[Rfam]
This 100-nucleotide RNA belongs to the Rfam family "pemK RNA".

RNA sequence: AUAAUGAUACUUCCGUACAGCCUUAGUCUGUGUGAUGAUGUAGCACCGCUGAUAAAGGGUACGGCUGGAUGAGAACCAUGCAGGGGUGAGAUUCCCAUGA
Numbered sequence: 001a002u003a004a005u006g007a008u009a010c011u012u013c014c015g016u017a018c019a020g021c022c023u024u025a026g027u028c029u030g031u032g033u034g035a036u037g038a039u040g041u042a043g044c045a046c047c048g049c050u051g052a053u054a055a056a057g058g059g060u061a062c063g064g065c066u067g068g069a070u071g072a073g074a075a076c077c078a079u080g081c082a083g084g085g086g087u088g089a090g091a092u093u094c095c096c097a098u099g100a
Stems, first nucleotide, its partner, number of pairs: 012097001013064006065083003069079003084096003
Dot-bracket structure: ...........(((((((........................................))))))(((.(((.....))).)))(((.......))))...
About this RNA:
The family's RNA type in Rfam is cis-regulatory element.